The record is a 57-nucleotide RNA sequence from Ziziphus jujuba, which matches "Plastid-ndhJ 3UTR RNA" in Rfam. Pairs were carried over by alignment from the consensus structure, which was predicted with LocARNA. Rfam's curators write: Plastid ndhJ is a non-coding RNA (ncRNA) present in plastids. The family has 50 seed sequences and 869 matches in Rfam 15.1. The organism belongs to Ziziphus jujuba, within Eukaryota.
RNA sequence: UGCAGAACUAUGUAUCAUACACAUUACUUAGAUGGAUUCCAGAAAGUAACAACAUAG
Number, nucleotide and partner (000 for none) at each position: 001u000002g000003c000004a000005g000006a000007a000008c000009u000010a000011u000012g000013u000014a000015u000016c000017a000018u000019a037020c000021a000022c034023a033024u032025u031026a000027c000028u000029u000030a000031g025032a024033u023034g022035g000036a000037u019038u000039c000040c000041a000042g000043a000044a000045a000046g000047u000048a000049a000050c000051a000052a000053c000054a000055u000056a000057g000